A member of the RNA family "Lysine riboswitch aptamer" from Aneurinibacillus danicus, 190 nucleotides long. The source organism's lineage runs through Bacteria, Bacillota, Bacilli, Caryophanales and Aneurinibacillus. Rfam's curators write: Riboswitches are metabolite binding domains within certain messenger RNAs that serve as precision sensors for their corresponding targets.
RNA sequence: AGGUGAGGUAGAGGAGCGAAGACCAUGAGUACCCCGCUGGAGGAGCGAGAGUCCUGAGAAAGCGGAUGAAAGGGGAAUUCGCCGAAAUGACAGAACGGAUCUCGCCGCCUGUCGUUGGGUCUGCAUUGAAUAAGUGCAGGACUGUCACCGGACUAUCAUCCCGGAUAGCCGGUGGAGUACUAUCUCGCAC
Numbered sequence: 001a002g003g004u005g006a007g008g009u010a011g012a013g014g015a016g017c018g019a020a021g022a023c024c025a026u027g028a029g030u031a032c033c034c035c036g037c038u039g040g041a042g043g044a045g046c047g048a049g050a051g052u053c054c055u056g057a058g059a060a061a062g063c064g065g066a067u068g069a070a071a072g073g074g075g076a077a078u079u080c081g082c083c084g085a086a087a088u089g090a091c092a093g094a095a096c097g098g099a100u101c102u103c104g105c106c107g108c109c110u111g112u113c114g115u116u117g118g119g120u121c122u123g124c125a126u127u128g129a130a131u132a133a134g135u136g137c138a139g140g141a142c143u144g145u146c147a148c149c150g151g152a153c154u155a156u157c158a159u160c161c162c163g164g165a166u167a168g169c170c171g172g173u174g175g176a177g178u179a180c181u182a183u184c185u186c187g188c189a190c
Stems, first nucleotide, its partner, number of pairs: 006185006016082005023075002034065005086116008097105001117143002120140008145175007
Dot-bracket structure: .....((((((....(((((..((.........(((((......................)))))........))..)))))...((((((((...(.......)...))))))))((.((((((((.....)))))))).)).(((((((.................)))))))....)))))).....